This 172-nucleotide RNA from Corynebacterium kroppenstedtii belongs to the Rfam family "FMN riboswitch aptamer (RFN element)". The source organism's lineage runs through Bacteria, Actinomycetota, Mycobacteriales, Corynebacterium and Corynebacterium kroppenstedtii. The match comes from Rfam's covariance-model search (110 bits).
RNA sequence: GUUCGUUCUCAGGGCGGGGUGAAAUUCCCCACCGGCGGUGAACCCCUUCUGACAGAGACGAAGAGGUAAGCCCGCGAGCGCUCUCACGUGCAAGGAUGUGCACAUGAGGGGUCUAGCAGAUCCGGUGUAAUUCCGGAGCCGACGGUCACAGUCCGGAUGGAAGAGAAUGUAU
Numbered sequence: 001g002u003u004c005g006u007u008c009u010c011a012g013g014g015c016g017g018g019g020u021g022a023a024a025u026u027c028c029c030c031a032c033c034g035g036c037g038g039u040g041a042a043c044c045c046c047u048u049c050u051g052a053c054a055g056a057g058a059c060g061a062a063g064a065g066g067u068a069a070g071c072c073c074g075c076g077a078g079c080g081c082u083c084u085c086a087c088g089u090g091c092a093a094g095g096a097u098g099u100g101c102a103c104a105u106g107a108g109g110g111g112u113c114u115a116g117c118a119g120a121u122c123c124g125g126u127g128u129a130a131u132u133c134c135g136g137a138g139c140c141g142a143c144g145g146u147c148a149c150a151g152u153c154c155g156g157a158u159g160g161a162a163g164a165g166a167a168u169g170u171a172u
Stems, first nucleotide, its partner, number of pairs: 004169007017029003031152002033141002035075004070139002078117002121137005143155003